RNA sequence: UCAGAUUCCUCGGGGUGCUGCAGUUCCGGUACGCGACCGGCCUUCGGCUGAGAUAAUACCCGUAGAACCUGGACAGGGUAAUGCCUGCGCAGGGAAGGUGGUCAGAUUAUUU
Numbered sequence: 001u002c003a004g005a006u007u008c009c010u011c012g013g014g015g016u017g018c019u020g021c022a023g024u025u026c027c028g029g030u031a032c033g034c035g036a037c038c039g040g041c042c043u044u045c046g047g048c049u050g051a052g053a054u055a056a057u058a059c060c061c062g063u064a065g066a067a068c069c070u071g072g073a074c075a076g077g078g079u080a081a082u083g084c085c086u087g088c089g090c091a092g093g094g095a096a097g098g099u100g101g102u103c104a105g106a107u108u109a110u111u112u
Stems, first nucleotide, its partner, number of pairs: 006100001008098003011062004016056001017048004068093004074087004

The record is a 112-nucleotide sequence from Flavihumibacter petaseus, which matches "TPP riboswitch aptamer (THI element)" in Rfam. Pairs were carried over by alignment from the consensus structure, which is taken from published work. The literature on the family includes a 2006 paper in Science by Thore et al., "Structure of the eukaryotic thiamine pyrophosphate riboswitch with its regulatory ligand". Rfam 15.1 lists 16,130 matches to the family in 8,693 species.